[Rfam]
RNA sequence: UCGCCGCCCUCCCUUAUCACUCUUCUGCUCCAGCCCUGAGGUUUUAAUUCCGCUGGACGGAGGACUGAUAAGUGUGGGCGGGGU
Numbered sequence: 001u002c003g004c005c006g007c008c009c010u011c012c013c014u015u016a017u018c019a020c021u022c023u024u025c026u027g028c029u030c031c032a033g034c035c036c037u038g039a040g041g042u043u044u045u046a047a048u049u050c051c052g053c054u055g056g057a058c059g060g061a062g063g064a065c066u067g068a069u070a071a072g073u074g075u076g077g078g079c080g081g082g083g084u
Stems, first nucleotide, its partner, number of pairs: 011074001013072007021064006029056002
A member of the RNA family "mir-184 microRNA precursor family" from Petromyzon marinus, 84 nucleotides long. Rfam's curators put it in the seed alignment. Taxonomically the source falls in Petromyzon (Eukaryota, Bilateria, Cyclostomata, Petromyzontiformes).